[Rfam]
Nucleotides: 173
Stems, first nucleotide, its partner, number of pairs: 001016001003014001005012001027173001030170002035165001039160002043156002045151002048148002061146006073138001075136001078133004083128001085113004091106004
Number, partner (000 for none) and nucleotide at each position: 001016u002000u003014a004000g005012u006000g007000g008000u009000g010000a011000a012005a013000a014003u015000u016001a017000a018000u019000u020000g021000a022000a023000g024000g025000a026000a027173g028000a029000u030170g031169g032000u033000g034000a035165c036000a037000a038000a039160u040159g041000g042000u043156u044155g045151c046150g047000c048148u049147g050000a051000c052000g053000a054000a055000c056000a057000g058000a059000a060000a061146c062145u063144u064143u065142a066141u067000a068000c069000c070000a071000a072000a073138g074000c075136u076000g077000a078133g079132g080131u081130a082000a083128a084000u085113g086112g087111a088110u089000g090000a091106g092105c093104u094103u095000g096000c097000u098000g099000c100000a101000c102000a103094a104093a105092g106091c107000g108000a109000a110088g111087u112086c113085c114000g115000a116000u117000a118000c119000u120000a121000c122000a123000c124000g125000a126000a127000a128083u129000c130081u131080g132079u133078u134000a135000c136075a137000a138073u139000a140000u141066a142065u143064a144063a145062a146061g147049u148048a149000a150046c151045g152000a153000u154000a155044u156043g157000c158000g159040u160039a161000g162000a163000a164000a165035g166000a167000u168000a169031u170030c171000u172000c173027u